The record is a 163-nucleotide sequence from Jeotgalibaca dankookensis, which matches "M-box riboswitch aptamer (ykoK leader)" in Rfam. About the family: M-box riboswitch, also know as ykoK leader is described as a metaloregulatory RNA that sense divalent metals and function as a genetic control element of genes related to divalent metal transport in bacteria. It was first reported upstream of the B.subtilis ykoK gene and genes with related functions in other bacteria. The pairing is the family consensus, mapped onto this sequence.
RNA sequence: GAAUAGCCUUGUUAGGUGAGGUUACUGUACUAGAGAUACGCUGCUGCCCAGAAAUGUCCAAAGACGCCAACGGGUCAACAGGAAUUUCCGAAUUAAGGGGAUUCUUAAUGUAGCUGGGAGUCCCUAUGCUGUACAGAGCUGAAACUCAAUGAAGAGGUGCGCA
Numbered sequence: 001g002a003a004u005a006g007c008c009u010u011g012u013u014a015g016g017u018g019a020g021g022u023u024a025c026u027g028u029a030c031u032a033g034a035g036a037u038a039c040g041c042u043g044c045u046g047c048c049c050a051g052a053a054a055u056g057u058c059c060a061a062a063g064a065c066g067c068c069a070a071c072g073g074g075u076c077a078a079c080a081g082g083a084a085u086u087u088c089c090g091a092a093u094u095a096a097g098g099g100g101a102u103u104c105u106u107a108a109u110g111u112a113g114c115u116g117g118g119a120g121u122c123c124c125u126a127u128g129c130u131g132u133a134c135a136g137a138g139c140u141g142a143a144a145c146u147c148a149a150u151g152a153a154g155a156g157g158u159g160c161g162c163a
Base pairs, nucleotide, nucleotide: 006158007157008156009155010154011150012149013096015146016145017144020140021139022138025136026135027134028133029132030131032130033129040114041113042112043111044110046075047074048073049072055066056065057064058063081105082104083103084102087099088098089097116124117123118122

Taxonomically the source falls in Jeotgalibaca (Bacteria, Bacillota, Lactobacillales, Carnobacteriaceae).